Rfam assigns this 47-nucleotide RNA from Avibacterium volantium to the family "PreQ1 (pre queuosine) riboswitch aptamer". The pairing is the family consensus, mapped onto this sequence. About the family: This family is a bacterial riboswitch that binds to the metabolite preQ1, an intermediate in the biosynthesis of the modified nucleoside queuosine from GTP. One example of this riboswitch is located in the leader of the Bacillus subtilis ykvJKLM (queCDEF) operon which encodes four genes necessary for queuosine production. PreQ1 binding to the riboswitch aptamer is thought to induce premature transcription termination within the leader to down-regulate expression of these genes. It scores 46 bits against the family's covariance model. The organism belongs to Avibacterium, within Bacteria.

RNA sequence: GUAACCGUGGUUCGCAAACCUCCCACGCAAAAAAAAACUAGGACAUC
Numbered sequence: 001g002u003a004a005c006c007g008u009g010g011u012u013c014g015c016a017a018a019c020c021u022c023c024c025a026c027g028c029a030a031a032a033a034a035a036a037a038c039u040a041g042g043a044c045a046u047c
Stems, first nucleotide, its partner, number of pairs: 006027005016039001